RNA sequence: ACUCGAACGGCGCGGCGCUGCAAGGCGCAGCCGCUGGACGAAGGCGUUUCGGGGAGGAAACGUCCGCUCCUGAGAGAGCGAGAAAGCCCGCUGCGAUGUAUCCCCCGCAGCGGGCUUUUUC
Numbered sequence: 001a002c003u004c005g006a007a008c009g010g011c012g013c014g015g016c017g018c019u020g021c022a023a024g025g026c027g028c029a030g031c032c033g034c035u036g037g038a039c040g041a042a043g044g045c046g047u048u049u050c051g052g053g054g055a056g057g058a059a060a061c062g063u064c065c066g067c068u069c070c071u072g073a074g075a076g077a078g079c080g081a082g083a084a085a086g087c088c089c090g091c092u093g094c095g096a097u098g099u100a101u102c103c104c105c106c107g108c109a110g111c112g113g114g115c116u117u118u119u120u121c
Stems, first nucleotide, its partner, number of pairs: 003041003008036002013033004043064008081120015
Caulobacter sRNA CrfA: a 121-nucleotide RNA from Brevundimonas sp. AAP58. The organism belongs to Brevundimonas, within Bacteria. The family's RNA type in Rfam is small RNA. It scores 39 bits against the family's covariance model.